[Rfam]
RNA sequence: UGGGAUAAUGGACGCGAGGGAAAUCGGCAAAAUAGCUCCGUAUCUUCGGUAUAAGGAGUGCCUAUUCCGUGAGGGAAUAGGUCGCAGUGACGAAGGGACUCCGACUGUUUACCACAAACACAGAUCGCUGCUAGUCCGUAAGGAUGUGUAUAGCGGUUGAAACCUGCCCAGUGCUGGUACCUGAAAGCCCCGUACAAGGGGAAGAAGGGCCAGUAAACGGCGGGGGUAACUAUGACCCUCUUAAGGUAGCGUAAUACCUAGCCGCUUAAUUGGCGGCUUGCAUGAAGGUUCAACGUGGGUCCCACUGUCCCCGCGUUCAGCCCAGUGAAAUUGAUGUACUGGUGCACAAUCCAGUCU
Numbered sequence: 001u002g003g004g005a006u007a008a009u010g011g012a013c014g015c016g017a018g019g020g021a022a023a024u025c026g027g028c029a030a031a032a033u034a035g036c037u038c039c040g041u042a043u044c045u046u047c048g049g050u051a052u053a054a055g056g057a058g059u060g061c062c063u064a065u066u067c068c069g070u071g072a073g074g075g076a077a078u079a080g081g082u083c084g085c086a087g088u089g090a091c092g093a094a095g096g097g098a099c100u101c102c103g104a105c106u107g108u109u110u111a112c113c114a115c116a117a118a119c120a121c122a123g124a125u126c127g128c129u130g131c132u133a134g135u136c137c138g139u140a141a142g143g144a145u146g147u148g149u150a151u152a153g154c155g156g157u158u159g160a161a162a163c164c165u166g167c168c169c170a171g172u173g174c175u176g177g178u179a180c181c182u183g184a185a186a187g188c189c190c191c192g193u194a195c196a197a198g199g200g201g202a203a204g205a206a207g208g209g210c211c212a213g214u215a216a217a218c219g220g221c222g223g224g225g226g227u228a229a230c231u232a233u234g235a236c237c238c239u240c241u242u243a244a245g246g247u248a249g250c251g252u253a254a255u256a257c258c259u260a261g262c263c264g265c266u267u268a269a270u271u272g273g274c275g276g277c278u279u280g281c282a283u284g285a286a287g288g289u290u291c292a293a294c295g296u297g298g299g300u301c302c303c304a305c306u307g308u309c310c311c312c313g314c315g316u317u318c319a320g321c322c323c324a325g326u327g328a329a330a331u332u333g334a335u336g337u338a339c340u341g342g343u344g345c346a347c348a349a350u351c352c353a354g355u356c357u
Stems, first nucleotide, its partner, number of pairs: 001324004009319008018310003035059005044049001060082009083087001095303007102295002106120003123158008131148001134145004161290004166221003171218002173214005180209003188201004222240006241245001261277006338355005
RNA: Archaeal large subunit ribosomal RNA, nucleotides 1719 to 2075